RNA sequence: GCCGGUCCUCGGUAGUGGCUCCCGGGAACACACGUUGCCGGCAGCUUCGAUCGAAGGCCGGC
Number, nucleotide and partner (000 for none) at each position: 001g062002c061003c060004g059005g058006u057007c056008c000009u054010c053011g052012g051013u050014a000015g000016u000017g046018g045019c044020u043021c000022c041023c040024g039025g038026g000027a036028a035029c034030a000031c000032a000033c000034g029035u028036u027037g000038c025039c024040g023041g022042c000043a020044g019045c018046u017047u000048c000049g000050a013051u012052c011053g010054a009055a000056g007057g006058c005059c004060g003061g002062c001
RNA: Actino-pnp RNA